[Rfam]
RNA sequence: GUAAAUGUGAUUUAGGCCAUCCAUAUAAUCCUAAGGAUAUGGCUUAGGAGUCUCUACCGAGGGGCCGUAAACCCUUCGACUAUGGAUGAGCUAGGGGGUAUU
Numbered sequence: 001g002u003a004a005a006u007g008u009g010a011u012u013u014a015g016g017c018c019a020u021c022c023a024u025a026u027a028a029u030c031c032u033a034a035g036g037a038u039a040u041g042g043c044u045u046a047g048g049a050g051u052c053u054c055u056a057c058c059g060a061g062g063g064g065c066c067g068u069a070a071a072c073c074c075u076u077c078g079a080c081u082a083u084g085g086a087u088g089a090g091c092u093a094g095g096g097g098g099u100a101u102u
Base pairs, nucleotide, nucleotide: 018088019087020086021085022084023083024082025081029049030048031047032046033045034044035043058078059077060076061075062074063073064072

Source information
This 102-nucleotide RNA from Caloramator australicus belongs to the Rfam family "Purine riboswitch aptamer".